[Rfam]
RNA sequence: UUCUUAUCAAGAGAGACGGAGGGAUUUGGCCCUGAGAAGUCUCAGCAACCGGCCUGAGGAAGGACACGGUGCUAACUCCAAUAGGCAUAUGCCUAAAAGAUGAGAA
Numbered sequence: 001u002u003c004u005u006a007u008c009a010a011g012a013g014a015g016a017c018g019g020a021g022g023g024a025u026u027u028g029g030c031c032c033u034g035a036g037a038a039g040u041c042u043c044a045g046c047a048a049c050c051g052g053c054c055u056g057a058g059g060a061a062g063g064a065c066a067c068g069g070u071g072c073u074a075a076c077u078c079c080a081a082u083a084g085g086c087a088u089a090u091g092c093c094u095a096a097a098a099g100a101u102g103a104g105a106a
Stems, first nucleotide, its partner, number of pairs: 001106008013043005021032003026081004044073004049069002051065001053063002077098001082095005
Dot-bracket structure: ((((((((....(((((...(((..[[[[)))......)))))((((.(((.((.......)).)..))))))...(]]]](((((....)))))..)))))))))
RNA: SAM riboswitch aptamer (S box leader)